[Rfam]
RNA: mir-7563 microRNA precursor family
RNA sequence: ACCAAGUACUUACCUACUAUAUAGUAGCUGAAAUACAUGCAUCUCGCAUACUAUAUAGAAGGUAAGUACGUGGUUU
Numbered sequence: 001a002c003c004a005a006g007u008a009c010u011u012a013c014c015u016a017c018u019a020u021a022u023a024g025u026a027g028c029u030g031a032a033a034u035a036c037a038u039g040c041a042u043c044u045c046g047c048a049u050a051c052u053a054u055a056u057a058g059a060a061g062g063u064a065a066g067u068a069c070g071u072g073g074u075u076u
Base pairs, nucleotide, nucleotide: 001074002073003072004071006069007068008067009066010065011064012063013062014061015060017058018057019056020055021054022053023052024051025050026049029046030045031044033042034041
Dot-bracket structure: ((((.((((((((((.((((((((((..(((.((......)).)))..)))))))))).)))))))))).))))..